[Rfam]
RNA: mir-205 microRNA precursor family
RNA sequence: GUAUUCUAUCCUUCAUUCCACCGGAGUCUGUGUAACGUGACGAUCAGAUUUCAGUGGUUUGAAGAGUAAAACGCA
Numbered sequence: 001g002u003a004u005u006c007u008a009u010c011c012u013u014c015a016u017u018c019c020a021c022c023g024g025a026g027u028c029u030g031u032g033u034a035a036c037g038u039g040a041c042g043a044u045c046a047g048a049u050u051u052c053a054g055u056g057g058u059u060u061g062a063a064g065a066g067u068a069a070a071a072c073g074c075a
Base pairs, nucleotide, nucleotide: 011064012063013062014061015060019056020055021054023052024051025050026049028047029046030045